[Rfam]
RNA: Flavo-1 RNA
Organism: Lacinutrix sp. Bg11-31
RNA sequence: AGUUAGCCUUACAAAUACAGCGUUAGGGAUUGAAACGGCAUCCUUUUUUAUCUUUUAGAAAAAAGAUAUAGUGAAAAGCUCGACCUUUA
Numbered sequence: 001a002g003u004u005a006g007c008c009u010u011a012c013a014a015a016u017a018c019a020g021c022g023u024u025a026g027g028g029a030u031u032g033a034a035a036c037g038g039c040a041u042c043c044u045u046u047u048u049u050a051u052c053u054u055u056u057a058g059a060a061a062a063a064a065g066a067u068a069u070a071g072u073g074a075a076a077a078g079c080u081c082g083a084c085c086u087u088u089a
Stems, first nucleotide, its partner, number of pairs: 026081003030077002035072002040067003046062004
Dot-bracket structure: .........................(((.((...((...(((...((((.........))))..)))...))...)).)))........